[Rfam]
RNA sequence: UUGAUUGUCAGAAAAAACACAGUCCGGUUGGUAGUCCGGAUGCGGCAAGCUUUCUUACCGUCAGUAUCCUUCCCUCCUGGGUCGUCCAUCUGAUGGUCACAAUAA
Numbered sequence: 001u002u003g004a005u006u007g008u009c010a011g012a013a014a015a016a017a018c019a020c021a022g023u024c025c026g027g028u029u030g031g032u033a034g035u036c037c038g039g040a041u042g043c044g045g046c047a048a049g050c051u052u053u054c055u056u057a058c059c060g061u062c063a064g065u066a067u068c069c070u071u072c073c074c075u076c077c078u079g080g081g082u083c084g085u086c087c088a089u090c091u092g093a094u095g096g097u098c099a100c101a102a103u104a105a
Stems, first nucleotide, its partner, number of pairs: 004097008022041006042061004047056003072081003
azaaromatic riboswitch aptamer (yjdF RNA): a 105-nucleotide RNA from Lentilactobacillus hilgardii. A search with the family's covariance model found it, with a score of 80 bits. Lineage of the source: Bacteria > Bacillati > Lactobacillaceae > Lentilactobacillus > Lentilactobacillus hilgardii.